Record summary: The family of this 64-nucleotide RNA sequence from Aeromicrobium flavum is "Actino-pnp RNA". It scores 62 bits against the family's covariance model. The base pairs follow the family's consensus structure, which is taken from published work.
RNA sequence: CUCGGUCCUCGGUAGUGGCCCUCGGAGCGCCACCGGCGACCGCGGGCCUCGAUCGAAGACCGGC
Numbered sequence: 001c002u003c004g005g006u007c008c009u010c011g012g013u014a015g016u017g018g019c020c021c022u023c024g025g026a027g028c029g030c031c032a033c034c035g036g037c038g039a040c041c042g043c044g045g046g047c048c049u050c051g052a053u054c055g056a057a058g059a060c061c062g063g064c
Stems, first nucleotide, its partner, number of pairs: 002063006009056005017048005023042003028038003